[Rfam]
RNA sequence: UACUGUAAAUGGCAAACCUGUCGAAAGACAGGGACGCAAAGCUUCCGGUCUACGGGUUUUACCUAUGACAGCGGGGUUGCCAGA
Numbered sequence: 001u002a003c004u005g006u007a008a009a010u011g012g013c014a015a016a017c018c019u020g021u022c023g024a025a026a027g028a029c030a031g032g033g034a035c036g037c038a039a040a041g042c043u044u045c046c047g048g049u050c051u052a053c054g055g056g057u058u059u060u061a062c063c064u065a066u067g068a069c070a071g072c073g074g075g076g077u078u079g080c081c082a083g084a
Stems, first nucleotide, its partner, number of pairs: 012037002017032006040078004045074003048069003055063003

Shown here is an 84-nucleotide RNA from Woeseia oceani, a member of the family "c-di-GMP-I riboswitch aptamer". For this family Rfam cites "Identification of 22 candidate structured RNAs in bacteria using the CMfinder comparative genomics pipeline" (Weinberg et al., Nucleic Acids Res, 2007). Taxonomically the source falls in Woeseia (Bacteria, Gammaproteobacteria, Woeseiales, Woeseiaceae). The family has 155 seed sequences and 5,092 matches in Rfam 15.1.